RNA sequence: UUCACUCUAACUUGUAUGGAGUUGUAACAGCGCCCCUAGCGGCAAACGUAGGCAAACGUUUCAGCUCCAUACAAAUUUAAGUUA
Dot-bracket structure: ........((.(((((.(.(((((.(((.....((...(.......)...)).....))).))))).).))))).)).......
RNA: mir-2807 microRNA precursor family